[Rfam]
RNA sequence: UUCAACUCUACGGAUCCCGUCCGAGGCCUUCCUCUGCCUGCUCUUUCGGGAGCGGGUUCAGGGUCGAGGGCCGAGGCAGCUCGAUACUCCAAGGAGCGCACUCUAUCUUCCAUGGUGCUAAUUUCCUAUCGUGGGAUCCCAGACUAAACAAGACUUCCCUGUGGGCGCCGAGUUCGCGGUCAAACGCUGAGCAUGGUUAGCCCUGGGAUGCUCGAGGACGAGAUAUUCCACCCCUUUCACCGAGAUCGUCGAUCUAUGAGGUUGAGGAAAACCAUUUCAUACCCACAUUC
Dot-bracket structure: ...........(((((((((((..((.(((((((((.(((((.(....).)))).)..)))))..)))).))).))).......(..(....((.((.................)).))........)..).)))))))..........(.....((((.(.....((((.((((((........)).)))).)))).....).))))...)....(..(((((........((((..(((..((((...)))).....))).))))......)))))....).......
A member of the RNA family "A. fumigatus sRNA Afu_309" from Coniochaeta sp. 2T2.1, 290 nucleotides long. The base pairs follow the family's consensus structure, which was predicted with WAR. A search with the family's covariance model found it, with a score of 116 bits. It is annotated as a small RNA. On this family, see Jochl et al., Nucleic Acids Res 2008: "Small ncRNA transcriptome analysis from Aspergillus fumigatus suggests a novel mechanism for regulation of protein synthesis".